[Rfam]
RNA sequence: CAAAAUAAAGGGCAAAGCCGCCGGAAGGCGGUGACGCAAAACUAGAGGGUCUCAAUCACGUAUGUGACAGACAGCCAGUUGCUGGC
Numbered sequence: 001c002a003a004a005a006u007a008a009a010g011g012g013c014a015a016a017g018c019c020g021c022c023g024g025a026a027g028g029c030g031g032u033g034a035c036g037c038a039a040a041a042c043u044a045g046a047g048g049g050u051c052u053c054a055a056u057c058a059c060g061u062a063u064g065u066g067a068c069a070g071a072c073a074g075c076c077a078g079u080u081g082c083u084g085g086c
Stems, first nucleotide, its partner, number of pairs: 012037002017032006040080004047076002049072003056067004
Record summary:
c-di-GMP-I riboswitch aptamer: an 86-nucleotide sequence from Butyrivibrio sp. M55. Its family is annotated with cyclic-di-GMP binding in the Gene Ontology. The family's consensus secondary structure is taken from published work.